[Rfam]
RNA: GcvB RNA
Organism: Vibrio ostreae
RNA sequence: GCAACGCUGACCUGAACGGCUUGAUUCUGUUUAGAAUCAAUGGGCUUAGUUGUUGCGAUGUUGUGUUUGCAAACUCGGUUUUCGAGUUCGGUAGGUUUCUACCACCCUGUUUUGUGCAGUUAUCCCCUGCUACAAAAUAUACUUCCUGUAUUUAUUUUUUGACCUGUCUGUCAAAUUUUUAGCACCGCCUAUAUGGCGGUGUUUUUUUAU
Numbered sequence: 001g002c003a004a005c006g007c008u009g010a011c012c013u014g015a016a017c018g019g020c021u022u023g024a025u026u027c028u029g030u031u032u033a034g035a036a037u038c039a040a041u042g043g044g045c046u047u048a049g050u051u052g053u054u055g056c057g058a059u060g061u062u063g064u065g066u067u068u069g070c071a072a073a074c075u076c077g078g079u080u081u082u083c084g085a086g087u088u089c090g091g092u093a094g095g096u097u098u099c100u101a102c103c104a105c106c107c108u109g110u111u112u113u114g115u116g117c118a119g120u121u122a123u124c125c126c127c128u129g130c131u132a133c134a135a136a137a138u139a140u141a142c143u144u145c146c147u148g149u150a151u152u153u154a155u156u157u158u159u160u161g162a163c164c165u166g167u168c169u170g171u172c173a174a175a176u177u178u179u180u181a182g183c184a185c186c187g188c189c190u191a192u193a194u195g196g197c198g199g200u201g202u203u204u205u206u207u208u209a210u
Stems, first nucleotide, its partner, number of pairs: 009046001011044002016041001021040008073087005090131006150177001152175002181203008